The record is a 104-nucleotide RNA sequence from Clostridium sp. USBA 49, which matches "SAM riboswitch aptamer (S box leader)" in Rfam. Clan: SAM clan.
RNA sequence: AGCUUAUCAAGAAAGGUGGAGGGACUGGCCCAGUGAAACCUUGGCAACCGGAACGUUAGUUUAUCGGUGCCAAUUCCAGCAGGUGUUAUCCUGAAAGAUAAGAA
Numbered sequence: 001a002g003c004u005u006a007u008c009a010a011g012a013a014a015g016g017u018g019g020a021g022g023g024a025c026u027g028g029c030c031c032a033g034u035g036a037a038a039c040c041u042u043g044g045c046a047a048c049c050g051g052a053a054c055g056u057u058a059g060u061u062u063a064u065c066g067g068u069g070c071c072a073a074u075u076c077c078a079g080c081a082g083g084u085g086u087u088a089u090c091c092u093g094a095a096a097g098a099u100a101a102g103a104a
Stems, first nucleotide, its partner, number of pairs: 003102006013042005021031003025079004043071004048067002051062002075096001080093004
The SAM riboswitch is found upstream of a number of genes which code for proteins involved in methionine or cysteine biosynthesis in Gram-positive bacteria.